[Rfam]
RNA: Group II catalytic intron D1-D4-3
Organism: Nodosilinea sp. LEGE 07088
RNA sequence: GUUUCCGUGAGGAAGGGUCUGAAGGAAGCCAGCGGCAAAGAUGCGGGCCGACGAACAGAAACGUCAUAGAAGGCCGAGUUCCUGGGGCGAGUUGGCACAACACAACGAAGCCUUUUGGUUCAGGGGAUACGGUAAAUGACGCGGUGGCGCAUUGACAGUUCACGGU
Numbered sequence: 001g002u003u004u005c006c007g008u009g010a011g012g013a014a015g016g017g018u019c020u021g022a023a024g025g026a027a028g029c030c031a032g033c034g035g036c037a038a039a040g041a042u043g044c045g046g047g048c049c050g051a052c053g054a055a056c057a058g059a060a061a062c063g064u065c066a067u068a069g070a071a072g073g074c075c076g077a078g079u080u081c082c083u084g085g086g087g088c089g090a091g092u093u094g095g096c097a098c099a100a101c102a103c104a105a106c107g108a109a110g111c112c113u114u115u116u117g118g119u120u121c122a123g124g125g126g127a128u129a130c131g132g133u134a135a136a137u138g139a140c141g142c143g144g145u146g147g148c149g150c151a152u153u154g155a156c157a158g159u160u161c162a163c164g165g166u
Stems, first nucleotide, its partner, number of pairs: 002015005028166003035159002040153006047145004062141006073133003078128006085113004091106004